[Rfam]
Shown here is a 376-nucleotide sequence from Virgibacillus oceani, a member of the family "Bacterial RNase P class B". Pairs were carried over by alignment from the consensus structure, which is taken from published work. A reference for the family is Frank and Pace (1998), "Ribonuclease P: unity and diversity in a tRNA processing ribozyme", Annu Rev Biochem. It scores 315 bits against the family's covariance model. Ribonuclease P (RNase P) is a ubiquitous endoribonuclease, found in archaea, bacteria and eukarya as well as chloroplasts and mitochondria. Its best characterised activity is the generation of mature 5'-ends of tRNAs by cleaving the 5'-leader elements of precursor-tRNAs. Cellular RNase Ps are ribonucleoproteins.
RNA sequence: AUGCUCAUGUAAUCGCUGCAUACCUAUGCAGAGGAAAGUCCAUGCUCACACAAACUGCGAUGUUUGUAGUGUUCGUGCUUGACGAAUUCAUAAGUCAAGGUAGCCUUUAAUGGCUAACGGCAGGAGAAAUUCCUAAGUCAUCAUGAUAGGGAAAACUAUCCUUGAAGGUGCCACAGUGACGAAGUCUGGUUGGAAACAUUCAGAGUGGAACGAGGUAAACCCCGCGAGUGAGCAACCCAAAUAAUGGUAGGGGCAUCCUUGAUUAGGGAAAUGAACCGAAAAAGGGACAAGUCACACUUGUAGAUAGAUGAUUACGACCAAACGUACGAGGCUGACCACCACUUGAGUACAAUGGUACAGAACAUGGCUUAUCGAG
Dot-bracket structure: ...(((((((((((.((((((....))))))....[[[.[[[[[(((((((((((......)))))).....(((((((((((..........))))))((((((......))))).)((.((((....((((...(((.....)))..)))).....)))).....(((((............(((((.((....)).))))).........)))..))))))))))))))...(((...........)))...(((((.....................)))))((((((...))))))........)))))))..(.(..((((...................))))..).).......]]]]]]]].).)))
The organism belongs to Virgibacillus, within Bacteria.